[Rfam]
RNA sequence: GAGCCAGUUUAGCCUAGCGGUUCCUUCACAAUCUGAGUAAUUGUCAUUCAACUGCUAGUUCCUAGUAGUUUGAGUCCUGAGGGUGCUGUCUGGUUUUUUU
Numbered sequence: 001g002a003g004c005c006a007g008u009u010u011a012g013c014c015u016a017g018c019g020g021u022u023c024c025u026u027c028a029c030a031a032u033c034u035g036a037g038u039a040a041u042u043g044u045c046a047u048u049c050a051a052c053u054g055c056u057a058g059u060u061c062c063u064a065g066u067a068g069u070u071u072g073a074g075u076c077c078u079g080a081g082g083g084u085g086c087u088g089u090c091u092g093g094u095u096u097u098u099u100u
Stems, first nucleotide, its partner, number of pairs: 002095006012084004018079003025074004

Rfam assigns this 100-nucleotide RNA from Pantherophis guttatus to the family "Vault RNA". This family of RNAs are found as part of the enigmatic vault ribonucleoprotein complex. A search with the family's covariance model found it, with a score of 61 bits.